[Rfam]
RNA sequence: UACUAUUAUUAGCCUAAGUUUUUUAAAACACGGGGAAACCAAAUUUUGGGGUGAAUCGUAAAAUUACGUAGGUUAUACCUUUUCCGAACCCGUCAGCUAACCCCGUAGGCAAAAGGAGUGAGAAAAU
Numbered sequence: 001u002a003c004u005a006u007u008a009u010u011a012g013c014c015u016a017a018g019u020u021u022u023u024u025a026a027a028a029c030a031c032g033g034g035g036a037a038a039c040c041a042a043a044u045u046u047u048g049g050g051g052u053g054a055a056u057c058g059u060a061a062a063a064u065u066a067c068g069u070a071g072g073u074u075a076u077a078c079c080u081u082u083u084c085c086g087a088a089c090c091c092g093u094c095a096g097c098u099a100a101c102c103c104c105g106u107a108g109g110c111a112a113a114a115g116g117a118g119u120g121a122g123a124a125a126a127u
Base pairs, nucleotide, nucleotide: 012110013109014108018029019028020027030106031105032104033103034102035101040048041047049091050090051089057068058067059066060065071085072084
RNA: c-di-AMP riboswitch aptamer (ydaO/yuaA leader)
Organism: Clostridium botulinum